[Rfam]
RNA sequence: UGCCGGCUUUCCACCAGCCGGGGUUACUGCAGAGGCACACCUUCAUUGCCGAGAGUGCGGUUGGGUCCGUCCCAUCCAAUCCAAGGCAGACAAAGCGGACCGACGUUUUUCGAAGCGUUGAAGUCCUUUCGUCGCGUCGAGCGAUCGCGCGCGUU
Numbered sequence: 001u002g003c004c005g006g007c008u009u010u011c012c013a014c015c016a017g018c019c020g021g022g023g024u025u026a027c028u029g030c031a032g033a034g035g036c037a038c039a040c041c042u043u044c045a046u047u048g049c050c051g052a053g054a055g056u057g058c059g060g061u062u063g064g065g066u067c068c069g070u071c072c073c074a075u076c077c078a079a080u081c082c083a084a085g086g087c088a089g090a091c092a093a094a095g096c097g098g099a100c101c102g103a104c105g106u107u108u109u110u111c112g113a114a115g116c117g118u119u120g121a122a123g124u125c126c127u128u129u130c131g132u133c134g135c136g137u138c139g140a141g142c143g144a145u146c147g148c149g150c151g152c153g154u155u
Base pairs, nucleotide, nucleotide: 001023003021004020005019006018007017008016034050035049036048037047057135058134059133086096105118106117108115109114
The family of this 155-nucleotide RNA from Pararhizobium mangrovi is "speF leader". A search with the family's covariance model found it, with a score of 101 bits. By type it is a cis-regulatory leader. NCBI's taxonomy places the organism under Bacteria, Pseudomonadati, Hyphomicrobiales, Rhizobiaceae, Pararhizobium. About the family: This family is a putative regulatory RNA structure that is found upstream of the speF gene encoding ornithine decarboxylase in Agrobacterium tumefaciens and other alpha-proteobacteria.